Notes: Rfam assigns this 108-nucleotide RNA sequence from Plutella xylostella to the family "mir-8517 microRNA precursor family".

RNA sequence: GUAUAGGACGUUUUAGCUAUUGAACUGUUAUAUCCCUCUCUGUCAAAGAACAAUUUGUUCUAAGUUAGAGAGGGGCACAACAGUUCAAUAGCUAAAACAUCCUAUGAC
Numbered sequence: 001g002u003a004u005a006g007g008a009c010g011u012u013u014u015a016g017c018u019a020u021u022g023a024a025c026u027g028u029u030a031u032a033u034c035c036c037u038c039u040c041u042g043u044c045a046a047a048g049a050a051c052a053a054u055u056u057g058u059u060c061u062a063a064g065u066u067a068g069a070g071a072g073g074g075g076c077a078c079a080a081c082a083g084u085u086c087a088a089u090a091g092c093u094a095a096a097a098c099a100u101c102c103u104a105u106g107a108c
Stems, first nucleotide, its partner, number of pairs: 002106005011097018029069001031067002034064001049059004
The base pairs follow the family's consensus structure, which was predicted with RNAalifold.